Shown here is an 88-nucleotide RNA from Quadrisphaera sp. DSM 44207, a member of the family "ZMP/ZTP riboswitch aptamer (pfl RNA motif)".

RNA sequence: GUCCCGCGUCGCGACUGGCGUGAGGUGGGCAACCACCGGGGAGCGGCGCACGAGCACCGACCGCGGGUCGUCCGCCUGGGCCCAGCGU
Numbered sequence: 001g002u003c004c005c006g007c008g009u010c011g012c013g014a015c016u017g018g019c020g021u022g023a024g025g026u027g028g029g030c031a032a033c034c035a036c037c038g039g040g041g042a043g044c045g046g047c048g049c050a051c052g053a054g055c056a057c058c059g060a061c062c063g064c065g066g067g068u069c070g071u072c073c074g075c076c077u078g079g080g081c082c083c084a085g086c087g088u
Stems, first nucleotide, its partner, number of pairs: 003052001006049007015040002017076004025036004065083005